[Rfam]
RNA sequence: UCAAUUCAUGCUGCUCUGUAACGGGCUGGAUCCGACGCCUUCUUGAAGGCUACUAUAUGCUCUCCUCCCCAACUCCUACACAAUACGUCCGCGACGAAUGGUAACUUGUCGCCUAAAUAUCCAAGCCUGGGUACACGGGGAAACCCACCCCUUUGGGCGGAUGGGCGGCAAGGCUAAAUAUAGAGGG
Numbered sequence: 001u002c003a004a005u006u007c008a009u010g011c012u013g014c015u016c017u018g019u020a021a022c023g024g025g026c027u028g029g030a031u032c033c034g035a036c037g038c039c040u041u042c043u044u045g046a047a048g049g050c051u052a053c054u055a056u057a058u059g060c061u062c063u064c065c066u067c068c069c070c071a072a073c074u075c076c077u078a079c080a081c082a083a084u085a086c087g088u089c090c091g092c093g094a095c096g097a098a099u100g101g102u103a104a105c106u107u108g109u110c111g112c113c114u115a116a117a118u119a120u121c122c123a124a125g126c127c128u129g130g131g132u133a134c135a136c137g138g139g140g141a142a143a144c145c146c147a148c149c150c151c152u153u154u155g156g157g158c159g160g161a162u163g164g165g166c167g168g169c170a171a172g173g174c175u176a177a178a179u180a181u182a183g184a185g186g187g
Stems, first nucleotide, its partner, number of pairs: 012098001023070003028065003032059001074187004079183001083179002086096002089101002105172010119162004128147005150157002